[Rfam]
RNA sequence: UUACGUGACGAAGCGCGUGCCAAAGUGGACAAUAACGCCUGAGCUAUCCGUUAGCCUCCCGAACGCCGGUUAAAGCCGGCGUUUUUUA
Numbered sequence: 001u002u003a004c005g006u007g008a009c010g011a012a013g014c015g016c017g018u019g020c021c022a023a024a025g026u027g028g029a030c031a032a033u034a035a036c037g038c039c040u041g042a043g044c045u046a047u048c049c050g051u052u053a054g055c056c057u058c059c060c061g062a063a064c065g066c067c068g069g070u071u072a073a074a075g076c077c078g079g080c081g082u083u084u085u086u087u088a
Stems, first nucleotide, its partner, number of pairs: 015059001017056001019039001021037001062083008
RNA: sroD RNA
Organism: Kosakonia cowanii